RNA sequence: GCAUGGGUUUGGAUUUAUGGCAGGUCCGUCCCCCUAGGCCUCUCAUAGUGUCCCAUGCCAGAGCAAACUGUGGCUCCAAGCUUGGCCUUUGCUUGUAGGUUGCUGGCACUGAUAUGGGUUGCACAGUG
Numbered sequence: 001g002c003a004u005g006g007g008u009u010u011g012g013a014u015u016u017a018u019g020g021c022a023g024g025u026c027c028g029u030c031c032c033c034c035u036a037g038g039c040c041u042c043u044c045a046u047a048g049u050g051u052c053c054c055a056u057g058c059c060a061g062a063g064c065a066a067a068c069u070g071u072g073g074c075u076c077c078a079a080g081c082u083u084g085g086c087c088u089u090u091g092c093u094u095g096u097a098g099g100u101u102g103c104u105g106g107c108a109c110u111g112a113u114a115u116g117g118g119u120u121g122c123a124c125a126g127u128g
Stems, first nucleotide, its partner, number of pairs: 001058004005053004015048006022041003025037001071121006077111002081106002083102006
The family of this 128-nucleotide sequence from Castor canadensis is "Small nucleolar RNA SNORA42/SNORA80 family".
A search with the family's covariance model found it, with a score of 109 bits.
By type it is an H/ACA-box small nucleolar RNA.